RNA: MIR2275 microRNA precursor family
RNA sequence: CCAUUUCAAGCGAGGAUUAGAUGGAACUGAACCUUCCAUUGCAAGAAUGCAAUCAAGGGUUCAGUUUCCUCUAAUAUCUCACCUCAAAUUG
Dot-bracket structure: ...(((.(...(((.((((((.((((((((.((........................)).)))))))).))))))..)))...).)))...